[Rfam]
RNA sequence: UUUUUGUGUGUAUGAAUUAUGAUAAUACACAUUCAGGCUUCAGAGGCGUUUUGGUGCCCAAUGAGAAGAAAUUUCCAUUGUUCUGAGCAAAAU
Numbered sequence: 001u002u003u004u005u006g007u008g009u010g011u012a013u014g015a016a017u018u019a020u021g022a023u024a025a026u027a028c029a030c031a032u033u034c035a036g037g038c039u040u041c042a043g044a045g046g047c048g049u050u051u052u053g054g055u056g057c058c059c060a061a062u063g064a065g066a067a068g069a070a071a072u073u074u075c076c077a078u079u080g081u082u083c084u085g086a087g088c089a090a091a092a093u
Stems, first nucleotide, its partner, number of pairs: 002092006045058004
Small nucleolar RNA R64/Z200 family: a 93-nucleotide sequence from Dendrobium catenatum. It scores 52 bits against the family's covariance model. The family's consensus secondary structure was predicted with PFOLD. For this family Rfam cites "Purified box C/D snoRNPs are able to reproduce site-specific 2'-O-methylation of target RNA in vitro" (Galardi et al., Mol Cell Biol, 2002). By type it is a C/D-box small nucleolar RNA. Rfam 15.1 lists 748 matches to the family in 228 species.